[Rfam]
RNA: HDV ribozyme from F. prausnitzii
RNA sequence: GGGAAUGCAUAGAUACAAGCCUCCGCGUGGCCAUUCCCGGGCAACACUCUUUUAAAGUGGCUAAUAUGUAUCU
Numbered sequence: 001g002g003g004a005a006u007g008c009a010u011a012g013a014u015a016c017a018a019g020c021c022u023c024c025g026c027g028u029g030g031c032c033a034u035u036c037c038c039g040g041g042c043a044a045c046a047c048u049c050u051u052u053u054a055a056a057g058u059g060g061c062u063a064a065u066a067u068g069u070a071u072c073u
Stems, first nucleotide, its partner, number of pairs: 001038007019031003045059004